RNA sequence: GACAUGCAUUCAGAUUGGGCCACUGCCCAGGCCAACCUGCCCCCUCGGGCAAGGUGGCGAGCCACGUAGGCGAUGCGGCCGGGCAGCCGGCAACGAAGCGAGGCACA
Number, nucleotide and partner (000 for none) at each position: 001g000002a000003c000004a000005u000006g076007c075008a074009u073010u072011c000012a000013g000014a000015u030016u029017g028018g027019g026020c025021c000022a000023c000024u000025g020026c019027c018028c017029a016030g015031g058032c057033c056034a000035a000036c054037c053038u052039g050040c049041c048042c000043c103044c102045u101046c100047g099048g041049g040050c039051a000052a038053g037054g036055u000056g033057g032058c031059g000060a000061g000062c000063c000064a000065c000066g000067u000068a000069g000070g000071c000072g010073a009074u008075g007076c006077g000078g091079c090080c089081g088082g000083g000084c000085a000086g000087c000088c081089g080090g079091c078092a000093a000094c000095g000096a000097a000098g000099c047100g046101a045102g044103g043104c000105a000106c000107a000

The record is a 107-nucleotide RNA sequence from Sphingomonas taxi, which matches "SAM-I/IV (S-adenosyl methionine) riboswitch aptamer" in Rfam. The organism belongs to Sphingomonas, within Bacteria. Pairs were carried over by alignment from the consensus structure, which is taken from published work. Rfam 15.1 lists 567 matches to the family in 508 species. The family is grouped with related families in Rfam's "SAM clan". The match comes from Rfam's covariance-model search (55 bits).